[Rfam]
RNA sequence: AAUUAACCAGCACGGGCGUAGGAUUUUAUCCACGCCCGUGCACGCAUGUUAAGGGCAGGAUCAAUAAC
Numbered sequence: 001a002a003u004u005a006a007c008c009a010g011c012a013c014g015g016g017c018g019u020a021g022g023a024u025u026u027u028a029u030c031c032a033c034g035c036c037c038g039u040g041c042a043c044g045c046a047u048g049u050u051a052a053g054g055g056c057a058g059g060a061u062c063a064a065u066a067a068c
Base pairs, nucleotide, nucleotide: 010041011040012039013038014037015036016035017034018033021031022030023029
Rfam assigns this 68-nucleotide RNA from Erwinia tasmaniensis to the family "tpke11". The source organism's lineage runs through Bacteria, Pseudomonadati, Gammaproteobacteria, Erwiniaceae and Erwinia. The base pairs follow the family's consensus structure, which was predicted with WAR. Rfam's curators write: In Yersinia located in ICR upstream dnaJ (chaperone)gene. Has temperature responsive RNA structure. Rfam classes the family as a small RNA.